[Rfam]
RNA sequence: GGUCAUGAGUGCCAGCACCAAGCCCCGGCUUGCUGGUCGGCAACCCUCCCACGCGGUGGGGUGCCCCGGGUGAUGACCAGGUCCCCCGCGACGGGCGUGGGGGUACAAGCGCGUUAG
Numbered sequence: 001g002g003u004c005a006u007g008a009g010u011g012c013c014a015g016c017a018c019c020a021a022g023c024c025c026c027g028g029c030u031u032g033c034u035g036g037u038c039g040g041c042a043a044c045c046c047u048c049c050c051a052c053g054c055g056g057u058g059g060g061g062u063g064c065c066c067c068g069g070g071u072g073a074u075g076a077c078c079a080g081g082u083c084c085c086c087c088g089c090g091a092c093g094g095g096c097g098u099g100g101g102g103g104u105a106c107a108a109g110c111g112c113g114u115u116a117g
Stems, first nucleotide, its partner, number of pairs: 001078004009038001011037006021030002039065003044061003048056002081106002083103008
SAM (S-adenosyl methionine) riboswitch aptamer: a 117-nucleotide RNA from Skermania sp. ID1734. A reference for the family is Weinberg et al. (2008), "The aptamer core of SAM-IV riboswitches mimics the ligand-binding site of SAM-I riboswitches", RNA. Lineage of the source: Bacteria > Bacillati > Actinomycetota > Mycobacteriales > Skermania. SAM-IV is a mRNA element that regulates gene expression via direct sensing of S-adenosylmethionine (SAM or AdoMet). SAM-IV riboswitches share conserved nucleotide positions with the previously described SAM-I riboswitches sequence analysis and molecular recognition experiments suggest that SAM-I and SAM-IV riboswitches share similar ligand binding sites, but have different scaffolds. Pairs were carried over by alignment from the consensus structure, which is taken from published work.